[Rfam]
A member of the RNA family "Bacterial RNase P class A" from a Rhodospirillales bacterium, 378 nucleotides long. Ribonuclease P (RNase P) is a ubiquitous endoribonuclease, found in archaea, bacteria and eukarya as well as chloroplasts and mitochondria.
RNA sequence: UCAGACGGCUGGAUGGCUGCGCUCCGCAAGGGGCGAGGAAAGUCCGGGCUCCACGGAGACACGGUGCCGGCUAACGGCCGGCGGGGGCGACCCCAGGGAAAGUGCCACAGAGAAAAGACCGCCAGCCCGGUUCGCCGGGAAGGUAAGGGUGAAACGGUGGGGUAAGAGCCCACCGCGCGACCGGCAACGGAAGCGGCACGGCAAACCCCACCGGGAGCAAGACCAAAUAGGGGCGGCACGCCGGGCAACCGGCAGCGGUGUUUCCGCGUCGCCGCCCGGGUCGGUCGCGCGAGGCGCUCGGCAACGGGCGUCCCAGAGGAAUGGCCAUCCAUCGCCGAAAGGCGAGGACAGAACCCGGCUUACAGGCCGUCUGACCUG
Numbered sequence: 001u002c003a004g005a006c007g008g009c010u011g012g013a014u015g016g017c018u019g020c021g022c023u024c025c026g027c028a029a030g031g032g033g034c035g036a037g038g039a040a041a042g043u044c045c046g047g048g049c050u051c052c053a054c055g056g057a058g059a060c061a062c063g064g065u066g067c068c069g070g071c072u073a074a075c076g077g078c079c080g081g082c083g084g085g086g087g088c089g090a091c092c093c094c095a096g097g098g099a100a101a102g103u104g105c106c107a108c109a110g111a112g113a114a115a116a117g118a119c120c121g122c123c124a125g126c127c128c129g130g131u132u133c134g135c136c137g138g139g140a141a142g143g144u145a146a147g148g149g150u151g152a153a154a155c156g157g158u159g160g161g162g163u164a165a166g167a168g169c170c171c172a173c174c175g176c177g178c179g180a181c182c183g184g185c186a187a188c189g190g191a192a193g194c195g196g197c198a199c200g201g202c203a204a205a206c207c208c209c210a211c212c213g214g215g216a217g218c219a220a221g222a223c224c225a226a227a228u229a230g231g232g233g234c235g236g237c238a239c240g241c242c243g244g245g246c247a248a249c250c251g252g253c254a255g256c257g258g259u260g261u262u263u264c265c266g267c268g269u270c271g272c273c274g275c276c277c278g279g280g281u282c283g284g285u286c287g288c289g290c291g292a293g294g295c296g297c298u299c300g301g302c303a304a305c306g307g308g309c310g311u312c313c314c315a316g317a318g319g320a321a322u323g324g325c326c327a328u329c330c331a332u333c334g335c336c337g338a339a340a341g342g343c344g345a346g347g348a349c350a351g352a353a354c355c356c357g358g359c360u361u362a363c364a365g366g367c368c369g370u371c372u373g374a375c376c377u378g
Base pairs, nucleotide, nucleotide: 001374002373003372004371005370006369007368008367009366010365011363012329013328014327015326016325017324018323020035021034022033023032024031025030040361041360042359044358045357046356047355048354049217050216051215052214057263058262059261060260062213063212064211065210066209067081068080069079070078071077082096083094084093085092086091097208098207102206103205104202105201106200119148120147121144122143123142126139127138128137129136130135156174157173158172159171160170161169175197176195177194178193181190182189183188221286222285223284224283231277232276233275234274235273236272255267256266257265258264293312294311295310296309297308298307299306300305
Overview:
NCBI's taxonomy places the organism under Bacteria, Pseudomonadati, Pseudomonadota, Alphaproteobacteria, Rhodospirillales. The family's consensus secondary structure is taken from published work.